[Rfam]
RNA sequence: GGCAAGAGUAGAAGCGUUCAGCGGUACUGGGUUCUCUGCCCGCCGCCCGGAAAUUGCUCGAUGC
Numbered sequence: 001g002g003c004a005a006g007a008g009u010a011g012a013a014g015c016g017u018u019c020a021g022c023g024g025u026a027c028u029g030g031g032u033u034c035u036c037u038g039c040c041c042g043c044c045g046c047c048c049g050g051a052a053a054u055u056g057c058u059c060g061a062u063g064c
Base pairs, nucleotide, nucleotide: 006059007058008057009056010055015049018051019050021046022045023044024043025042

Xanthine riboswitch aptamer (NMT1 RNA): a 64-nucleotide RNA from Verticiella sediminum. The match comes from Rfam's covariance-model search (41 bits). The source organism's lineage runs through Bacteria, Pseudomonadota, Betaproteobacteria, Burkholderiales and Verticiella.